[Rfam]
RNA: Group II catalytic intron D1-D4-6
Organism: Paraburkholderia ribeironis
RNA sequence: AAAGUCCAUUACGAUGAAGGCGUAGCGAACCACAUCGGCCCCAAGCCGUGCGCUGGCGUCCGCGAGGAUGUCGGCGAAGCGUCGGUAGGGGAGCGUGCAGGCCAGCCAUUGAGCCGCGAUAUCUUUAACGUCCCGGGUGCCGACGUCGUCUAUUUGGCGGAAGGCAACACGGAGGGGCGCGCCAUCGCGAGCGCCUCGACGACCUGGCGCGGUCGCAGACCC
Numbered sequence: 001a002a003a004g005u006c007c008a009u010u011a012c013g014a015u016g017a018a019g020g021c022g023u024a025g026c027g028a029a030c031c032a033c034a035u036c037g038g039c040c041c042c043a044a045g046c047c048g049u050g051c052g053c054u055g056g057c058g059u060c061c062g063c064g065a066g067g068a069u070g071u072c073g074g075c076g077a078a079g080c081g082u083c084g085g086u087a088g089g090g091g092a093g094c095g096u097g098c099a100g101g102c103c104a105g106c107c108a109u110u111g112a113g114c115c116g117c118g119a120u121a122u123c124u125u126u127a128a129c130g131u132c133c134c135g136g137g138u139g140c141c142g143a144c145g146u147c148g149u150c151u152a153u154u155u156g157g158c159g160g161a162a163g164g165c166a167a168c169a170c171g172g173a174g175g176g177g178c179g180c181g182c183c184a185u186c187g188c189g190a191g192c193g194c195c196u197c198g199a200c201g202a203c204c205u206g207g208c209g210c211g212g213u214c215g216c217a218g219a220c221c222c
Stems, first nucleotide, its partner, number of pairs: 012037005019031002023190001025188002039091004045086004049081002051076011111214001113213006133207006139165003144159004170201002174197007